[Rfam]
S10-Clostridia ribosomal protein leader: an 84-nucleotide RNA sequence from Anaeromicrobium sediminis.
The organism belongs to Anaeromicrobium, within Bacteria.
On this family, see Eckert and Weinberg, BMC Microbiol 2020: "Discovery of 20 novel ribosomal leader candidates in bacteria and archaea".
The base pairs follow the family's consensus structure, which is taken from published work.
RNA sequence: GGACUGCAAUGAAAUGAAAGGUUGCCUGCUAAUAAUGAGGGGAAAUUUUCAUGGAGAAUGUCCGUUCAAUGAAAUGGGCGACAG
Numbered sequence: 001g002g003a004c005u006g007c008a009a010u011g012a013a014a015u016g017a018a019a020g021g022u023u024g025c026c027u028g029c030u031a032a033u034a035a036u037g038a039g040g041g042g043a044a045a046u047u048u049u050c051a052u053g054g055a056g057a058a059u060g061u062c063c064g065u066u067c068a069a070u071g072a073a074a075u076g077g078g079c080g081a082c083a084g
Base pairs, nucleotide, nucleotide: 014052015051016050018049019048020047021046025041026040027039029037059083060082061081062080064079065078066077067076